This 100-nucleotide RNA sequence from Paenibacillus zeisoli belongs to the Rfam family "Purine riboswitch aptamer". The organism belongs to Paenibacillus, within Bacteria. Rfam links the family to the GO term purine nucleobase biosynthetic process. A search with the family's covariance model found it, with a score of 67 bits. Riboswitches are metabolite binding domains within certain messenger RNAs that serve as precision sensors for their corresponding targets.

RNA sequence: AGUACAAACCAUAUAGCUUUUCGUAUAAUUCCGGGGAUUGGCCCGGGAGUUUCUACGAGGUCACCGUAAUGAUCUGGCUACGAAGGGAAAAGGCGCUCUG
Numbered sequence: 001a002g003u004a005c006a007a008a009c010c011a012u013a014u015a016g017c018u019u020u021u022c023g024u025a026u027a028a029u030u031c032c033g034g035g036g037a038u039u040g041g042c043c044c045g046g047g048a049g050u051u052u053c054u055a056c057g058a059g060g061u062c063a064c065c066g067u068a069a070u071g072a073u074c075u076g077g078c079u080a081c082g083a084a085g086g087g088a089a090a091a092g093g094c095g096c097u098c099u100g
Stems, first nucleotide, its partner, number of pairs: 018086008029048007058075006